[Rfam]
RNA sequence: GUUGCAUCUUACUUGUGAACACCUCUUAAUUUUAUAUAUGGGAUAUUCCUGUUUUGGAAGCAUAGAUUCAUGUCUUUGCCAGUAUUAAACAUCGUGAUGAGUACAUAAUGUUGCAUCGUAUUACCUGUCUUCUGGUACAACC
Numbered sequence: 001g002u003u004g005c006a007u008c009u010u011a012c013u014u015g016u017g018a019a020c021a022c023c024u025c026u027u028a029a030u031u032u033u034a035u036a037u038a039u040g041g042g043a044u045a046u047u048c049c050u051g052u053u054u055u056g057g058a059a060g061c062a063u064a065g066a067u068u069c070a071u072g073u074c075u076u077u078g079c080c081a082g083u084a085u086u087a088a089a090c091a092u093c094g095u096g097a098u099g100a101g102u103a104c105a106u107a108a109u110g111u112u113g114c115a116u117c118g119u120a121u122u123a124c125c126u127g128u129c130u131u132c133u134g135g136u137a138c139a140a141c142c
Base pairs, nucleotide, nucleotide: 003062004061005060007058008057017048018047019046022042023041024040078136079135080134081133082132084130091122095118096117097116098115099114
Dot-bracket structure: ..(((.((........(((..(((...............)))...)))........)).)))...............(((((.(......(...(((((..............)))))...).......).)))))......
A member of the RNA family "small nucleolar RNA snoR137" from Nicotiana tabacum, 142 nucleotides long. Taxonomically the source falls in Nicotiana (Eukaryota, Streptophytina, Pentapetalae, Nicotianoideae). The family's RNA type in Rfam is H/ACA-box small nucleolar RNA. The literature on the family includes a 2009 paper in Nucleic Acids Res by Chen and Wu, "Mining small RNA sequencing data: a new approach to identify small nucleolar RNAs in Arabidopsis".